[Rfam]
RNA sequence: UGAGACCUCUUGAUGGCCGCGGCGUGAACCUGGAACAAGCGAUUGGGAAGGGUUGGCGCUGAGGAACUUCCGGGCUCCAUAGAGCACGAUGGCGGAUAACGUCCGCCCAGGGUGACCUGAGAGAUAGCGCAGCAGAGAACAGACCGCCCGGGCCUGAAGGUGACUUCAGCCCAGGUAAGGGUGAAACGGCGGUGUAAGAGACCACCGGGCCGCUGGUAACAGCAGGCCGCAUGGCAAGCCUCAUCGGGAGCAAGGCCAAGCAGAAGGCGUUAAGGGCUGCUCGCCCGUGCCUUCGGGUAGGCUGCUAGAGCUUGAUGGCAACAUCAAGUCGAGAUGGAUGGCCAUCCAUCCUGCAAAGGAUGACAGAACCCGGGGUAGAAGAGGUCUCAACCA
Numbered sequence: 001u002g003a004g005a006c007c008u009c010u011u012g013a014u015g016g017c018c019g020c021g022g023c024g025u026g027a028a029c030c031u032g033g034a035a036c037a038a039g040c041g042a043u044u045g046g047g048a049a050g051g052g053u054u055g056g057c058g059c060u061g062a063g064g065a066a067c068u069u070c071c072g073g074g075c076u077c078c079a080u081a082g083a084g085c086a087c088g089a090u091g092g093c094g095g096a097u098a099a100c101g102u103c104c105g106c107c108c109a110g111g112g113u114g115a116c117c118u119g120a121g122a123g124a125u126a127g128c129g130c131a132g133c134a135g136a137g138a139a140c141a142g143a144c145c146g147c148c149c150g151g152g153c154c155u156g157a158a159g160g161u162g163a164c165u166u167c168a169g170c171c172c173a174g175g176u177a178a179g180g181g182u183g184a185a186a187c188g189g190c191g192g193u194g195u196a197a198g199a200g201a202c203c204a205c206c207g208g209g210c211c212g213c214u215g216g217u218a219a220c221a222g223c224a225g226g227c228c229g230c231a232u233g234g235c236a237a238g239c240c241u242c243a244u245c246g247g248g249a250g251c252a253a254g255g256c257c258a259a260g261c262a263g264a265a266g267g268c269g270u271u272a273a274g275g276g277c278u279g280c281u282c283g284c285c286c287g288u289g290c291c292u293u294c295g296g297g298u299a300g301g302c303u304g305c306u307a308g309a310g311c312u313u314g315a316u317g318g319c320a321a322c323a324u325c326a327a328g329u330c331g332a333g334a335u336g337g338a339u340g341g342c343c344a345u346c347c348a349u350c351c352u353g354c355a356a357a358g359g360a361u362g363a364c365a366g367a368a369c370c371c372g373g374g375g376u377a378g379a380a381g382a383g384g385u386c387u388c389a390a391c392c393a
Base pairs, nucleotide, nucleotide: 001389002388003387004386005385006384007383008382009381010380011378012346013345014344015343016342017341018340020061021060022059023058024057025056027054028053029052030051031050066376067375068374070373071372072371073370074369075250076249077248078247082282083281084280085279087246088245089244090243091242092106093105094104095103096102107121108119109118110117111116122241123240127239128238129235130234144180145179146176147175148174150172151171152170153169188206189205191203192202193201207230208228209227210226211225213222214221215220254303255302256301257300263294264293265292266291267290268289274286275285276284277283310329311328312327313326314325315324316323317322
Bacterial RNase P class A: a 393-nucleotide RNA sequence from Bifidobacterium psychraerophilum. The family's RNA type in Rfam is ribozyme. It scores 297 bits against the family's covariance model.